[Rfam]
RNA sequence: CGAUGGUGGCCUUUUUGGGGACGGAUGUCCAGGUCGCACAUUUCUGAGUCAGUGAUGUGGCAAGUGACCUUGAACCCUGCCCCCUGGGC
Numbered sequence: 001c002g003a004u005g006g007u008g009g010c011c012u013u014u015u016u017g018g019g020g021a022c023g024g025a026u027g028u029c030c031a032g033g034u035c036g037c038a039c040a041u042u043u044c045u046g047a048g049u050c051a052g053u054g055a056u057g058u059g060g061c062a063a064g065u066g067a068c069c070u071u072g073a074a075c076c077c078u079g080c081c082c083c084c085u086g087g088g089c
Stems, first nucleotide, its partner, number of pairs: 004086001006084001008083002018078003027068003030064001033061006
Background:
Shown here is an 89-nucleotide RNA sequence from Callithrix jacchus, a member of the family "NoRC associated RNA, pRNA". The family's consensus secondary structure is taken from published work. It scores 62 bits against the family's covariance model.